The family of this 94-nucleotide RNA from Shewanella oneidensis is "c-di-GMP-I riboswitch aptamer". Pairs were carried over by alignment from the consensus structure, which is taken from published work. The organism belongs to Shewanella oneidensis, within Bacteria. The sequence is in the family's curated seed alignment.
[Rfam]
RNA sequence: CACCGUAUUGGGCAAACUAAUUGAAAAAUUAGGACGCAAAGCCUCCGGUCUAAGGUUGUAAAGGGAUGUUAACUAAGAUAGCGGGGUUGCUUAA
Number, nucleotide and partner (000 for none) at each position: 001c000002a000003c000004c000005g000006u000007a000008u000009u000010g000011g000012g037013c036014a000015a000016a000017c032018u031019a030020a029021u028022u027023g000024a000025a000026a000027a022028a021029u020030u019031a018032g017033g000034a000035c000036g013037c012038a000039a000040a088041g087042c086043c085044u000045c084046c083047g082048g079049u078050c077051u000052a000053a000054g000055g073056u072057u071058g070059u000060a000061a000062a000063g000064g000065g000066a000067u000068g000069u000070u058071a057072a056073c055074u000075a000076a000077g050078a049079u048080a000081g000082c047083g046084g045085g043086g042087u041088u040089g000090c000091u000092u000093a000094a000